[Rfam]
RNA sequence: ACUUUCAAUCAAUAAGGCAUAGGAGUGUCAUCAUGUUUAAAGCAAUGUUUUUCUUCAGUGCAGGUGCGAUGUUUGGCUAUUGUUAUAAGCAUUAUGAUGAAAAAGUUAUAGAGUCUAAUAAAUCUAAAUAGCUCCUAAAAAAACCGUCUAAAUGGCGGUUUUUU
Numbered sequence: 001a002c003u004u005u006c007a008a009u010c011a012a013u014a015a016g017g018c019a020u021a022g023g024a025g026u027g028u029c030a031u032c033a034u035g036u037u038u039a040a041a042g043c044a045a046u047g048u049u050u051u052u053c054u055u056c057a058g059u060g061c062a063g064g065u066g067c068g069a070u071g072u073u074u075g076g077c078u079a080u081u082g083u084u085a086u087a088a089g090c091a092u093u094a095u096g097a098u099g100a101a102a103a104a105g106u107u108a109u110a111g112a113g114u115c116u117a118a119u120a121a122a123u124c125u126a127a128a129u130a131g132c133u134c135c136u137a138a139a140a141a142a143a144c145c146g147u148c149u150a151a152a153u154g155g156c157g158g159u160u161u162u163u164u
Stems, first nucleotide, its partner, number of pairs: 003128003008123002012119002020102001024098001026096002033092006041084007057070001059068003138164011
This 164-nucleotide sequence from Acinetobacter phage MD-2021a belongs to the Rfam family "Acinetobacter sRNA 25".
The family's consensus secondary structure was predicted with RNAfold.
It scores 63 bits against the family's covariance model.
By type it is a small RNA.